About this RNA:
UnaL2 LINE 3' element: a 54-nucleotide sequence from Muraenolepis orangiensis. By type it is a cis-regulatory element.
[Rfam]
RNA sequence: GUUUGUUAUUCUUGUAAGUCGCUUUGGAUAAAAGCGUCUGCCAAAUGCCCUAAA
Numbered sequence: 001g002u003u004u005g006u007u008a009u010u011c012u013u014g015u016a017a018g019u020c021g022c023u024u025u026g027g028a029u030a031a032a033a034g035c036g037u038c039u040g041c042c043a044a045a046u047g048c049c050c051u052a053a054a
Stems, first nucleotide, its partner, number of pairs: 013043001014041003020036006
Dot-bracket structure: ............((((...((((((.....))))))..))).)...........

The source organism's lineage runs through Eukaryota, Opisthokonta, Euteleosteomorpha, Gadiformes and Muraenolepis.